[Rfam]
RNA sequence: AAUAAAGACAUGGAGGUGCUUGAAUUUGCUUGUGGGUUUCGUGUUAUAAUUAUGACAA
Numbered sequence: 001a002a003u004a005a006a007g008a009c010a011u012g013g014a015g016g017u018g019c020u021u022g023a024a025u026u027u028g029c030u031u032g033u034g035g036g037u038u039u040c041g042u043g044u045u046a047u048a049a050u051u052a053u054g055a056c057a058a
Stems, first nucleotide, its partner, number of pairs: 007045009017035001018029002
RNA: Streptococcus sRNA SpF61